[Rfam]
RNA sequence: UCAGAUGGCCGGAUGGCCGCUGUCCUUCGGGGCAGAGGAAAGUCCGGGCUCCACGGAAUCACGGUGCCGGCUAACGGCCGGCGGGGGCGACCCCAGGGAAAGUGCCACAGAGAACAGACCGCCCGGCUGAGGCUUCUGCCUUCCGGGUAAGGGUGAAACGGUGCGGUAAGAGCGCACCGCGCGACCGGUAACGGAAGCGGCACGGCAAACCCCACCGGGAGCAAAACCAAAUAGGGGCGGCAUCGUUGGUUCGCCGACAGGUCCGUUUCCGGGUCGCCGCCCGGGUUGGUUGCACGAGGCGUCCGGUAACGGACGUCCCAGAUGAAUGGCCAUCGCCCGCAAGGGUACAGAACCCGGCUUACAGGCCAUCUGACACU
Number, nucleotide and partner (000 for none) at each position: 001u373002c372003a371004g370005a369006u368007g367008g366009c365010c364011g362012g334013a333014u332015g331016g330017c329018c328019g000020c035021u034022g033023u032024c031025c030026u000027u000028c000029g000030g025031g024032g023033c022034a021035g020036a000037g000038g000039a000040a360041a359042g358043u000044c357045c356046g355047g354048g353049c221050u220051c219052c218053a000054c000055g000056g000057a000058a268059u000060c000061a000062c217063g216064g215065u214066g213067c081068c080069g079070g078071c077072u000073a000074a000075c000076g000077g071078c070079c069080g068081g067082c096083g094084g093085g092086g091087g000088c000089g000090a000091c086092c085093c084094c083095a000096g082097g212098g211099a000100a000101a000102g210103u209104g206105c205106c204107a000108c000109a000110g000111a000112g000113a000114a000115c000116a000117g000118a000119c152120c151121g148122c147123c146124c145125g144126g143127c000128u000129g140130a000131g000132g000133c000134u000135u000136c000137u000138g000139c000140c129141u000142u000143c126144c125145g124146g123147g122148u121149a000150a000151g120152g119153g000154u000155g000156a000157a000158a000159c000160g178161g177162u176163g175164c174165g173166g000167u000168a000169a000170g000171a000172g000173c165174g164175c163176a162177c161178c160179g201180c199181g198182c197183g000184a000185c194186c193187g192188g000189u000190a000191a000192c187193g186194g185195a000196a000197g182198c181199g180200g000201c179202a000203c000204g106205g105206c104207a000208a000209a103210c102211c098212c097213c066214a065215c064216c063217g062218g052219g051220a050221g049222c000223a000224a000225a291226a290227c289228c288229a000230a000231a000232u000233a000234g000235g282236g281237g280238c279239g278240g277241c000242a000243u000244c000245g000246u000247u000248g000249g000250u000251u000252c000253g000254c000255c000256g000257a000258c000259a000260g275261g274262u273263c272264c271265g000266u000267u000268u058269c000270c000271g264272g263273g262274u261275c260276g000277c240278c239279g238280c237281c236282c235283g000284g000285g000286u000287u000288g228289g227290u226291u225292g000293c000294a000295c000296g000297a000298g317299g316300c315301g314302u313303c312304c311305g310306g000307u000308a000309a000310c305311g304312g303313a302314c301315g300316u299317c298318c000319c000320a000321g000322a000323u000324g000325a000326a000327u000328g018329g017330c016331c015332a014333u013334c012335g000336c000337c000338c000339g000340c000341a000342a000343g000344g000345g000346u000347a000348c000349a000350g000351a000352a000353c048354c047355c046356g045357g044358c042359u041360u040361a000362c011363a000364g010365g009366c008367c007368a006369u005370c004371u003372g002373a001374c000375a000376c000377u000
A member of the RNA family "Bacterial RNase P class A" from Parvibaculum sedimenti, 377 nucleotides long. A search with the family's covariance model found it, with a score of 321 bits. Rfam classes the family as a ribozyme.